Description
A member of the RNA family "ilvB-OMG RNA" from Pseudohaliea rubra, 221 nucleotides long. The family's RNA type in Rfam is cis-regulatory element. The base pairs follow the family's consensus structure, which is taken from published work. It scores 96 bits against the family's covariance model. The organism belongs to Pseudohaliea rubra, within Bacteria.
[Rfam]
Nucleotides: 221
Base pairs, nucleotide, nucleotide: 018048019047020046021045022044025040027038028037029036030035051077052076053075055073056072057071058070059069060068088129089128091127092126093125099121100120101119104118105117106116107115108114149192150191151190152189153188155186157178158177161174162173163172164171201215202214203213204212
Number, partner (000 for none) and nucleotide at each position: 001000g002000u003000c004000g005000u006000g007000c008000u009000g010000g011000u012000g013000g014000c015000a016000a017000c018048g019047g020046c021045u022044a023000g024000c025040g026000u027038c028037g029036g030035g031000u032000a033000c034000c035030c036029c037028c038027g039000u040025c041000c042000u043000c044022u045021g046020g047019c048018c049000u050000a051077c052076u053075g054000c055073a056072u057071c058070a059069a060068c061000g062000g063000u064000u065000u066000c067000a068060g069059u070058u071057g072056g073055u074000u075053c076052a077051g078000c079000u080000g081000c082000c083000c084000g085000c086000a087000u088129g089128u090000c091127c092126c093125g094000u095000a096000a097000a098000a099121c100120g101119g102000u103000g104118c105117u106116g107115c108114c109000g110000c111000a112000u113000g114108g115107g116106u117105g118104g119101u120100c121099g122000c123000c124000g125093u126092g127091g128089g129088u130000c131000c132000g133000a134000c135000a136000c137000u138000g139000c140000g141000c142000u143000a144000c145000c146000c147000c148000g149192c150191a151190g152189g153188g154000c155186g156000a157178c158177a159000c160000g161174c162173a163172c164171g165000g166000g167000u168000u169000c170000u171164c172163g173162u174161g175000a176000u177158u178157g179000u180000c181000a182000u183000u184000c185000c186155c187000c188153c189152u190151u191150u192149g193000g194000c195000g196000a197000g198000u199000a200000g201215a202214c203213g204212c205000u206000g207000u208000u209000g210000u211000u212204g213203c214202g215201u216000c217000c218000g219000g220000c221000g